The family of this 87-nucleotide RNA from Medicago truncatula is "MIR2617 microRNA precursor family". The base pairs follow the family's consensus structure, which was predicted with RNAalifold. The source organism's lineage runs through Eukaryota, Streptophyta, Pentapetalae, Fabales and Medicago.
[Rfam]
RNA sequence: AUGUAGUGUGACAUGCCCGUUUGGGUUAUUACUCUGAUUUAUUAUUUAUUAUUUAAUUGUUUUUGGGUAACGGGGUGUUACAUCUAA
Numbered sequence: 001a002u003g004u005a006g007u008g009u010g011a012c013a014u015g016c017c018c019g020u021u022u023g024g025g026u027u028a029u030u031a032c033u034c035u036g037a038u039u040u041a042u043u044a045u046u047u048a049u050u051a052u053u054u055a056a057u058u059g060u061u062u063u064u065g066g067g068u069a070a071c072g073g074g075g076u077g078u079u080a081c082a083u084c085u086a087a
Stems, first nucleotide, its partner, number of pairs: 002087001006083009016074006